[Rfam]
RNA sequence: GUUUGAAUGAUGACUUAAGUUGUCGGAUACCCCUUCACUCCUUCUAUGAGUGAAAUCGCAUAGUCUGACAAAC
Numbered sequence: 001g002u003u004u005g006a007a008u009g010a011u012g013a014c015u016u017a018a019g020u021u022g023u024c025g026g027a028u029a030c031c032c033c034u035u036c037a038c039u040c041c042u043u044c045u046a047u048g049a050g051u052g053a054a055a056u057c058g059c060a061u062a063g064u065c066u067g068a069c070a071a072a073c
Stems, first nucleotide, its partner, number of pairs: 001073005